Nucleotides: 083
Base pairs, nucleotide, nucleotide: 001029002028003027004026005025006024008022009021011019031073032072033071034070035069036068043067044066045065046064047063048062049061
Number, partner (000 for none) and nucleotide at each position: 001029g002028c003027c004026c005025g006024g007000c008022c009021g010000c011019g012000c013000u014000g015000u016000c017000u018000a019011c020000a021009c022008g023000c024006c025005c026004g027003g028002g029001c030000c031073a032072u033071c034070u035069g036068u037000a038000c039000a040000c041000c042000a043067g044066c045065c046064g047063u048062c049061c050000g051000g052000a053000c054000c055000g056000a057000c058000a059000c060000g061049g062048g063047g064046c065045g066044g067043c068036g069035c070034a071033g072032a073031u074000c075000g076000a077000a078000g079000g080000a081000g082000g083000a